[Rfam]
Nucleotides: 355
Stems, first nucleotide, its partner, number of pairs: 001318003009315001011198004018191003022085007030078002032074007045063007089185003092181005100174007107151001111147008122133003159166002203244006212238002217233004255314006263292012296303002320347003329340004
Number, partner (000 for none) and nucleotide at each position: 001318g002317g003316c004000g005000u006000a007000a008000a009315g010000c011198g012197c013196g014195u015000g016000u017000a018191g019190g020189c021000g022085g023084u024083c025082c026081g027080g028079c029000a030078a031077g032074u033073u034072g035071g036070a037069u038068g039000u040000g041000a042000a043000a044000u045063c046062u047061c048060u049059c050058g051057g052000c053000u054000c055000a056000a057051c058050c059049g060048g061047g062046a063045g064000a065000g066000g067000u068038c069037g070036u071035u072034c073033a074032a075000u076000a077031c078030u079028g080027c081026u082025g083024g084023g085022c086000u087000a088000g089185a090184g091183a092181g093180c094179g095178g096177u097000a098000g099000a100174g101173g102172g103171g104170g105169g106168u107151g108000g109000a110000a111147u112146u113145c114144c115143g116142g117141g118140u119000g120000u121000a122133g123132c124131g125000g126000u127000g128000a129000a130000a131124u132123g133122c134000g135000u136000a137000g138000a139000u140118a141117u142116c143115c144114g145113g146112a147111g148000g149000a150000a151107c152000a153000c154000c155000a156000g157000u158000g159166g160165c161000g162000a163000a164000g165160g166159c167000g168106g169105c170104c171103c172102c173101c174100u175000g176000g177096a178095c179094c180093g181092u182000c183091u184090c185089u186000g187000a188000c189020g190019c191018u192000c193000a194000g195014a196013c197012g198011c199000g200000a201000a202000a203244g204243c205242u206241a207240g208239g209000g210000g211000a212238g213237c214000a215000a216000a217233c218232g219231g220230g221000a222000u223000u224000a225000g226000a227000g228000a229000c230220c231219c232218c233217g234000g235000u236000a237213g238212u239208c240207c241206u242205a243204g244203c245000c246000g247000u248000a249000a250000a251000c252000g253000a254000u255314g256313u257312g258311g259310a260309c261000u262000u263292g264291g265290c266289g267288u268287u269286g270285g271284u272283g273282g274281g275000u276000u277000a278000a279000a280000a281274u282273c283272c284271a285270u286269c287268a288267g289266u290265g291264c292263c293000g294000a295000a296303g297302c298000u299000a300000a301000c302297g303296c304000g305000a306000u307000a308000a309260g310259u311258c312257c313256a314255c315009c316003g317002c318001c319000u320347g321346a322345g323000g324000a325000c326000u327000a328000c329340g330339g331338c332337c333000g334000c335000a336000a337332g338331g339330c340329u341000a342000a343000a344000a345322c346321u347320c348000a349000a350000a351000g352000g353000a354000a355000u